The family of this 99-nucleotide RNA from Rhododendron simsii is "Small nucleolar RNA snoR100".
The literature on the family includes a 2002 paper in Curr Biol by Marker et al., "Experimental RNomics: identification of 140 candidates for small non-messenger RNAs in the plant Arabidopsis thaliana".
The family's consensus secondary structure was predicted with WAR.
RNA sequence: GAAUGAAGGAAGCAUGGUAUUGUGCACAGAAAUUGAAUUGGGUCUCUAAGCCUGCCAUGCCUUUUGGCUUCGAUUGGGGUUUGGUUCUGCGGCAAAACG
Numbered sequence: 001g002a003a004u005g006a007a008g009g010a011a012g013c014a015u016g017g018u019a020u021u022g023u024g025c026a027c028a029g030a031a032a033u034u035g036a037a038u039u040g041g042g043u044c045u046c047u048a049a050g051c052c053u054g055c056c057a058u059g060c061c062u063u064u065u066g067g068c069u070u071c072g073a074u075u076g077g078g079g080u081u082u083g084g085u086u087c088u089g090c091g092g093c094a095a096a097a098c099g
Stems, first nucleotide, its partner, number of pairs: 012025004040082005050074001052072001054068003